Overview:
Small nucleolar RNA snoR26: a 90-nucleotide RNA from Asparagus officinalis.
RNA sequence: UGGGCAUCUGUGAUGUUGUCUUCCUUUAGUUAUCCUUGCACUUUGAUAUUCAAUGAAGAUGCCUCUGGGAAUUUAUGGACUGAGAUGCCC
Numbered sequence: 001u002g003g004g005c006a007u008c009u010g011u012g013a014u015g016u017u018g019u020c021u022u023c024c025u026u027u028a029g030u031u032a033u034c035c036u037u038g039c040a041c042u043u044u045g046a047u048a049u050u051c052a053a054u055g056a057a058g059a060u061g062c063c064u065c066u067g068g069g070a071a072u073u074u075a076u077g078g079a080c081u082g083a084g085a086u087g088c089c090c
Stems, first nucleotide, its partner, number of pairs: 002090007